[Rfam]
RNA sequence: AAUACUCUUCAGGGCAGGGUGAGAAUCCCGACCGGCGGUAUAGUCCGCGAGCCGAAAGGCAUGAUUUGGUGUAAUUCCAAAACCGAUGAUAACAUCGAGCAGUCGAUGAAGUUCAGAUGAAAGAAGAAAAUG
Number, nucleotide and partner (000 for none) at each position: 001a000002a000003u130004a000005c000006u127007c126008u125009u124010c123011a000012g000013g000014g000015c000016a000017g029018g028019g027020u000021g000022a000023g000024a000025a000026u000027c019028c018029c017030g000031a000032c000033c085034g084035g048036c047037g046038g045039u000040a000041u000042a000043g083044u082045c038046c037047g036048c035049g000050a000051g000052c000053c059054g000055a000056a000057a000058g000059g053060c000061a000062u000063g000064a000065u081066u080067u079068g078069g077070u000071g000072u000073a000074a000075u000076u000077c069078c068079a067080a066081a065082a044083c043084c034085g033086a000087u115088g114089a113090u000091a000092a000093c000094a000095u000096c000097g000098a000099g000100c000101a000102g000103u000104c000105g000106a000107u000108g000109a000110a000111g000112u000113u089114c088115a087116g000117a000118u000119g000120a000121a000122a000123g010124a009125a008126g007127a006128a000129a000130a003131u000132g000